[Rfam]
Overview:
The record is a 108-nucleotide RNA from Populus trichocarpa, which matches "Small nucleolar RNA snoR99" in Rfam. The family's RNA type in Rfam is H/ACA-box small nucleolar RNA. Pairs were carried over by alignment from the consensus structure, which was predicted with WAR. On this family, see Marker et al., Curr Biol 2002: "Experimental RNomics: identification of 140 candidates for small non-messenger RNAs in the plant Arabidopsis thaliana".
RNA sequence: GUGCUCUAGGGGGUGAAAGAGUCCCUGAUAUUUAAUUAACAUCCAUCCGUUUCACUUUGUCAGCAGUAUUGUUUGGUUUCUUGCUGAUCAUUAGAGGGUGGAAUAUUA
Numbered sequence: 001g002u003g004c005u006c007u008a009g010g011g012g013g014u015g016a017a018a019g020a021g022u023c024c025c026u027g028a029u030a031u032u033u034a035a036u037u038a039a040c041a042u043c044c045a046u047c048c049g050u051u052u053c054a055c056u057u058u059g060u061c062a063g064c065a066g067u068a069u070u071g072u073u074u075g076g077u078u079u080c081u082u083g084c085u086g087a088u089c090a091u092u093a094g095a096g097g098g099u100g101g102a103a104u105a106u107u108a
Base pairs, nucleotide, nucleotide: 042102043101044100045099046098047097059088060087061086062085063084064083065082066081
Dot-bracket structure: .........................................((((((...........((((((((..............))))))))........))))))......